[Rfam]
RNA sequence: AAACUUUUCCCUCAAUCGGGCGAGCAUUUUGAAAUGAUGCGCGCUUCGAUGAAUACUGCAACGGCUCAUGGGCGCGAUUUGUCCCAUGAGCCGAAAUGCAGAGCCGGAGCCGUCCGAGAGAGGUUAUCGUUGA
Numbered sequence: 001a002a003a004c005u006u007u008u009c010c011c012u013c014a015a016u017c018g019g020g021c022g023a024g025c026a027u028u029u030u031g032a033a034a035u036g037a038u039g040c041g042c043g044c045u046u047c048g049a050u051g052a053a054u055a056c057u058g059c060a061a062c063g064g065c066u067c068a069u070g071g072g073c074g075c076g077a078u079u080u081g082u083c084c085c086a087u088g089a090g091c092c093g094a095a096a097u098g099c100a101g102a103g104c105c106g107g108a109g110c111c112g113u114c115c116g117a118g119a120g121a122g123g124u125u126a127u128c129g130u131u132g133a
Stems, first nucleotide, its partner, number of pairs: 009122001011120003017116006024040005043110006056101005063092003067088006

The record is a 133-nucleotide RNA sequence, which matches "RAGATH-4 RNA" in Rfam.
The sequence is in the family's curated seed alignment.
The literature on the family includes a 2015 paper in Nat Chem Biol by Weinberg et al., "New classes of self-cleaving ribozymes revealed by comparative genomics analysis".